The record is a 46-nucleotide RNA sequence from Mystacornis crossleyi, which matches "Histone 3' UTR stem-loop" in Rfam. The organism belongs to Mystacornis, within Eukaryota. It scores 34 bits against the family's covariance model. It is annotated as a cis-regulatory element. Pairs were carried over by alignment from the consensus structure, which is taken from published work.
RNA sequence: CUAAAGGCUCUUUUAAGAGCCACUACAUAGCACAAGAGAGUUGAGA
Numbered sequence: 001c002u003a004a005a006g007g008c009u010c011u012u013u014u015a016a017g018a019g020c021c022a023c024u025a026c027a028u029a030g031c032a033c034a035a036g037a038g039a040g041u042u043g044a045g046a
Stems, first nucleotide, its partner, number of pairs: 006021006